[Rfam]
RNA sequence: GCACUGUGAUGAUUGAUUUAUUGUCAUAUGAUAAUUUUUGUGAUUAUAAAACAAUCCUCCUACUCAUUCUGA
Number, nucleotide and partner (000 for none) at each position: 001g000002c000003a000004c000005u000006g067007u066008g065009a064010u000011g000012a000013u000014u000015g000016a000017u000018u000019u000020a000021u000022u000023g000024u000025c000026a000027u048028a047029u000030g000031a000032u000033a000034a000035u000036u000037u000038u000039u000040g000041u000042g000043a000044u000045u000046a000047u028048a027049a000050a000051a000052c000053a000054a000055u000056c000057c000058u000059c000060c000061u000062a000063c000064u009065c008066a007067u006068u000069c000070u000071g000072a000
This 72-nucleotide RNA sequence from Trifolium subterraneum belongs to the Rfam family "Small nucleolar RNA Z105". Pairs were carried over by alignment from the consensus structure, which was predicted with CMfinder. The family has 11 seed sequences and 621 matches in Rfam 15.1. The source organism's lineage runs through Eukaryota, Tracheophyta, Fabaceae, Trifolieae and Trifolium. Rfam classes the family as a C/D-box small nucleolar RNA.